RNA sequence: UCGGCCACAUCUCCUUAUCACUUUUCCAGCCCAGCUAUCCUGACUGUAUCCGUUGGACGGAGAACUGAUAAGGGCAUGUGGCCGA
Numbered sequence: 001u002c003g004g005c006c007a008c009a010u011c012u013c014c015u016u017a018u019c020a021c022u023u024u025u026c027c028a029g030c031c032c033a034g035c036u037a038u039c040c041u042g043a044c045u046g047u048a049u050c051c052g053u054u055g056g057a058c059g060g061a062g063a064a065c066u067g068a069u070a071a072g073g074g075c076a077u078g079u080g081g082c083c084g085a
Base pairs, nucleotide, nucleotide: 012074013073014072015071016070017069018068019067020066022064023063024062025061026060027059030056031055